[Rfam]
RNA: mir-3569 microRNA precursor family
Organism: Mus musculus
RNA sequence: UCGGAGGAGAGCAGACCGGUGGUCGAAAUCCGGACCUCAGUCUGCGCUCCUCUCCAGC
Numbered sequence: 001u002c003g004g005a006g007g008a009g010a011g012c013a014g015a016c017c018g019g020u021g022g023u024c025g026a027a028a029u030c031c032g033g034a035c036c037u038c039a040g041u042c043u044g045c046g047c048u049c050c051u052c053u054c055c056a057g058c
Base pairs, nucleotide, nucleotide: 003053004052005051006050007049008048009047011045012044013043014042015041016040018038019037021036022035023034024033